[Rfam]
Rfam assigns this 102-nucleotide sequence from Halanaerobacter jeridensis to the family "Purine riboswitch aptamer". Lineage of the source: Bacteria > Bacillati > Bacillota > Halanaerobiales > Halanaerobacter. It scores 68 bits against the family's covariance model. Riboswitches are metabolite binding domains within certain messenger RNAs that serve as precision sensors for their corresponding targets.
RNA sequence: AUAAUAGACGAACAAUUCUCAUCGUAUAUGUGCGAAAAUAUGGUUCGCACGUUUCUACUAGGGGCCGUAAACUCUCUAACUACAUGAGAAGCUGGGCUAAGU
Numbered sequence: 001a002u003a004a005u006a007g008a009c010g011a012a013c014a015a016u017u018c019u020c021a022u023c024g025u026a027u028a029u030g031u032g033c034g035a036a037a038a039u040a041u042g043g044u045u046c047g048c049a050c051g052u053u054u055c056u057a058c059u060a061g062g063g064g065c066c067g068u069a070a071a072c073u074c075u076c077u078a079a080c081u082a083c084a085u086g087a088g089a090a091g092c093u094g095g096g097c098u099a100a101g102u
Base pairs, nucleotide, nucleotide: 018088019087020086021085022084024083025082026081030050031049032048033047034046035045036044059078060077061076062075063074064072